[Rfam]
Nucleotides: 080
Stems, first nucleotide, its partner, number of pairs: 001012004019071004031066004036061001043055002
Number, partner (000 for none) and nucleotide at each position: 001012u002011g003010c004009c005000c006000c007000u008000u009004g010003g011002c012001a013000a014000a015000a016000a017000u018000a019071a020070g021069u022068c023000g024000c025000a026000a027000c028000u029000g030000g031066a032065u033064u034063g035000a036061c037000c038000u039000a040000g041000u042000a043055g044054c045000u046000c047000c048000u049000u050000u051000u052000g053000a054044g055043c056000g057000a058000a059000a060000a061036g062000c063034c064033g065032a066031u067000a068022g069021a070020c071019u072000a073000a074000a075000u076000a077000a078000g079000a080000a

Shown here is an 80-nucleotide RNA, a member of the family "RT-18 RNA". It is one of the family's seed sequences. Rfam classes the family as a small RNA.